Description:
Selenocysteine transfer RNA: an 87-nucleotide RNA sequence from Necator americanus. The family's consensus secondary structure is taken from published work.

RNA sequence: GCCCGGAUGAUCAUCGGUGGUCCGGUGUGCAGGCUUCAAACCUGUAGGCGGUUAGUAGCCGCAGUGGUUCGAUUCCACCUUCCGGGU
Dot-bracket structure: (((((((.(..((((((....))))))((((((.......)))))).(((((.....))))).((((.......))))).)))))))
Numbered sequence: 001g002c003c004c005g006g007a008u009g010a011u012c013a014u015c016g017g018u019g020g021u022c023c024g025g026u027g028u029g030c031a032g033g034c035u036u037c038a039a040a041c042c043u044g045u046a047g048g049c050g051g052u053u054a055g056u057a058g059c060c061g062c063a064g065u066g067g068u069u070c071g072a073u074u075c076c077a078c079c080u081u082c083c084g085g086g087u
Stems, first nucleotide, its partner, number of pairs: 001087007009079001012027006028046006048062005064078004